[Rfam]
RNA: MIR1862 microRNA precursor family
RNA sequence: UACUCCCUCCGUCCCAAAAUACAAAAACCUAGUACUGGAUGUGACACAUUCUAGUACUACGAAUCUGGACAGUACCCACAUCCAGUACUAGGUUUUUGUAUUUUGGGACGGAGGGAGUAU
Numbered sequence: 001u002a003c004u005c006c007c008u009c010c011g012u013c014c015c016a017a018a019a020u021a022c023a024a025a026a027a028c029c030u031a032g033u034a035c036u037g038g039a040u041g042u043g044a045c046a047c048a049u050u051c052u053a054g055u056a057c058u059a060c061g062a063a064u065c066u067g068g069a070c071a072g073u074a075c076c077c078a079c080a081u082c083c084a085g086u087a088c089u090a091g092g093u094u095u096u097u098g099u100a101u102u103u104u105g106g107g108a109c110g111g112a113g114g115g116a117g118u119a120u
Stems, first nucleotide, its partner, number of pairs: 001119035038082006